[Rfam]
RNA sequence: GGUGAUAAACGGCCUUCGUAAUAAGCCAUUCGGACCCGGGGGCAGUACCCGGCGCCUCCACCAGAACCCAUCCGUGCGGUGGGCUGUGGCGGGGGCGAAACAGGAUCGACGAGGGUGUAAAAGUUGCGCUUUUGCCCGGCAUUGUACCGCCGUUACAGGGCUAACUUAUAGUUGCCAACGACAACUAUGCUCCGGUGGCCGUCGCUGCGUAA
Numbered sequence: 001g002g003u004g005a006u007a008a009a010c011g012g013c014c015u016u017c018g019u020a021a022u023a024a025g026c027c028a029u030u031c032g033g034a035c036c037c038g039g040g041g042g043c044a045g046u047a048c049c050c051g052g053c054g055c056c057u058c059c060a061c062c063a064g065a066a067c068c069c070a071u072c073c074g075u076g077c078g079g080u081g082g083g084c085u086g087u088g089g090c091g092g093g094g095g096c097g098a099a100a101c102a103g104g105a106u107c108g109a110c111g112a113g114g115g116u117g118u119a120a121a122a123g124u125u126g127c128g129c130u131u132u133u134g135c136c137c138g139g140c141a142u143u144g145u146a147c148c149g150c151c152g153u154u155a156c157a158g159g160g161c162u163a164a165c166u167u168a169u170a171g172u173u174g175c176c177a178a179c180g181a182c183a184a185c186u187a188u189g190c191u192c193c194g195g196u197g198g199c200c201g202u203c204g205c206u207g208c209g210u211a212a
Stems, first nucleotide, its partner, number of pairs: 001136005014126001017123001026115002030112003036052005053097007137152004
RNA: permuted transfer-messenger RNA
Organism: Terrihabitans soli